[Rfam]
RNA sequence: CCUUGCAGCCUUCGGGCUGCGGCUCAGAAAUGGGCGUUUCCUCCCUAGACUCAGACCGCGCUGCUUUCGGGCAGUGCGGUUUUUUUUUGCCGCG
Numbered sequence: 001c002c003u004u005g006c007a008g009c010c011u012u013c014g015g016g017c018u019g020c021g022g023c024u025c026a027g028a029a030a031u032g033g034g035c036g037u038u039u040c041c042u043c044c045c046u047a048g049a050c051u052c053a054g055a056c057c058g059c060g061c062u063g064c065u066u067u068c069g070g071g072c073a074g075u076g077c078g079g080u081u082u083u084u085u086u087u088u089g090c091c092g093c094g
Stems, first nucleotide, its partner, number of pairs: 001033002056079009
Dot-bracket structure: ((.............................))......................(((((((((......)))))))))...............
Notes: Makes More Granules Regulator RNA (mmgR): a 94-nucleotide RNA sequence from Aureimonas glaciei. On this family, see Ceizel Borella et al., FEMS Microbiol Lett 2016: "Expression of the Sinorhizobium meliloti small RNA gene mmgR is controlled by the nitrogen source". The family's RNA type in Rfam is small RNA. The source organism's lineage runs through Bacteria, Pseudomonadota, Alphaproteobacteria, Hyphomicrobiales and Aureimonas. SuhB later renamed mmgR (makes more granules regulator) was a putative non-coding RNA found multiple times in the Agrobacterium tumefaciens genome and related alpha-proteobacteria. The base pairs follow the family's consensus structure.